[Rfam]
RNA sequence: AAAAGUUAAAUAUUAUACACUCAUAUAAUUGAAGGAUAUGGCUUCAAGUUUCUACCGACCACCGUAAAUGGUCGACUAUGAGUGAGGGGAUAAGUUUA
Numbered sequence: 001a002a003a004a005g006u007u008a009a010a011u012a013u014u015a016u017a018c019a020c021u022c023a024u025a026u027a028a029u030u031g032a033a034g035g036a037u038a039u040g041g042c043u044u045c046a047a048g049u050u051u052c053u054a055c056c057g058a059c060c061a062c063c064g065u066a067a068a069u070g071g072u073c074g075a076c077u078a079u080g081a082g083u084g085a086g087g088g089g090a091u092a093a094g095u096u097u098a
Base pairs, nucleotide, nucleotide: 018084019083020082021081022080023079024078025077029047030046031045032044033043034042056074057073058072059071060070061069

Overview:
A member of the RNA family "Purine riboswitch aptamer" from Tepidibacillus fermentans, 98 nucleotides long. Its family is annotated with purine nucleobase biosynthetic process in the Gene Ontology. A search with the family's covariance model found it, with a score of 82 bits.